[Rfam]
RNA sequence: UCUUCGACAAGGGUCUUGGCGGUCUGGUCGGUUUUGUUUUCCUACUGGCCUGCUAAGUCCCAAGUCGCGGA
Numbered sequence: 001u002c003u004u005c006g007a008c009a010a011g012g013g014u015c016u017u018g019g020c021g022g023u024c025u026g027g028u029c030g031g032u033u034u035u036g037u038u039u040u041c042c043u044a045c046u047g048g049c050c051u052g053c054u055a056a057g058u059c060c061c062a063a064g065u066c067g068c069g070g071a
Stems, first nucleotide, its partner, number of pairs: 003069001005067004011061003015057005021051002024048001026046002030042001
RNA: mir-193 microRNA precursor family
Organism: Bombyx mori